[Rfam]
Shown here is a 132-nucleotide RNA sequence from Myotis davidii, a member of the family "Small nucleolar RNA SNORA33".
RNA sequence: AAGUCUGAGUUUGCCAAGUCUGCUUACCUGAAUGUGUUCUGCAGAAAUUUAGAGAAAGCUGGCAAUAGUAAAGCCAUGUUAUGAGCCUUAAAGACAUUGAAGUCCUUAAGGCUCCUGAAAAUAGCUAUAAGA
Numbered sequence: 001a002a003g004u005c006u007g008a009g010u011u012u013g014c015c016a017a018g019u020c021u022g023c024u025u026a027c028c029u030g031a032a033u034g035u036g037u038u039c040u041g042c043a044g045a046a047a048u049u050u051a052g053a054g055a056a057a058g059c060u061g062g063c064a065a066u067a068g069u070a071a072a073g074c075c076a077u078g079u080u081a082u083g084a085g086c087c088u089u090a091a092a093g094a095c096a097u098u099g100a101a102g103u104c105c106u107u108a109a110g111g112c113u114c115c116u117g118a119a120a121a122u123a124g125c126u127a128u129a130a131g132a
Base pairs, nucleotide, nucleotide: 003063004062005061007059019045020044021043022042023041073125074124076122085112086111087110088109089108090107091106093104094103095102
Its family is annotated with RNA processing and nucleolus in the Gene Ontology. Rfam 15.1 lists 1,176 matches to the family in 522 species. The organism belongs to Myotis, within Eukaryota. From the family's description: ACA33 is a member of the H/ACA class of snoRNA that guide the sites of modification of uridines to pseudouridines. The family's consensus secondary structure was predicted with PFOLD.